RNA sequence: UUUACGCCUGAAGUUCAGAGGAUGAGAAUCUCCGAAGGAGGUUUGAGCCGAGCACAGCGAGACAACGUUGCUUUAGCAACGGCCCGCAGGGCGAAUCACGCAGUGAUGAGUCAUCCUCUCUCGCCGACCA
Numbered sequence: 001u002u003u004a005c006g007c008c009u010g011a012a013g014u015u016c017a018g019a020g021g022a023u024g025a026g027a028a029u030c031u032c033c034g035a036a037g038g039a040g041g042u043u044u045g046a047g048c049c050g051a052g053c054a055c056a057g058c059g060a061g062a063c064a065a066c067g068u069u070g071c072u073u074u075a076g077c078a079a080c081g082g083c084c085c086g087c088a089g090g091g092c093g094a095a096u097c098a099c100g101c102a103g104u105g106a107u108g109a110g111u112c113a114u115c116c117u118c119u120c121u122c123g124c125c126g127a128c129c130a
Base pairs, nucleotide, nucleotide: 017119018118019117020116021115023113033093034092042088044086045085049059050058066081067080068079069078070077071076